RNA sequence: UUCCUUCCUUCUUGGCGCUUCUAUCUCUUACAAGAUAGCAGUGUAUGUAAUGGAAGGUAUAUUAUGUCCUUUUUGGAUAUUCGGGUCUCCUUCGGUGCUAUUCUAGUGAUGUUUCGAAUAGUGUCAUCCUCUGGGCUCGAGACAAUU
Numbered sequence: 001u002u003c004c005u006u007c008c009u010u011c012u013u014g015g016c017g018c019u020u021c022u023a024u025c026u027c028u029u030a031c032a033a034g035a036u037a038g039c040a041g042u043g044u045a046u047g048u049a050a051u052g053g054a055a056g057g058u059a060u061a062u063u064a065u066g067u068c069c070u071u072u073u074u075g076g077a078u079a080u081u082c083g084g085g086u087c088u089c090c091u092u093c094g095g096u097g098c099u100a101u102u103c104u105a106g107u108g109a110u111g112u113u114u115c116g117a118a119u120a121g122u123g124u125c126a127u128c129c130u131c132u133g134g135g136c137u138c139g140a141g142a143c144a145a146u147u
Stems, first nucleotide, its partner, number of pairs: 003057006010050001015044004021038006067077003080141009094125002098121006

A member of the RNA family "Nematode snoRNA ceN88" from Necator americanus, 147 nucleotides long.
On this family, see Jia et al., BMC Mol Biol 2007: "Systematic identification of non-coding RNA 2,2,7-trimethylguanosine cap structures in Caenorhabditis elegans".
Rfam links the family to the GO terms RNA processing and nucleolus.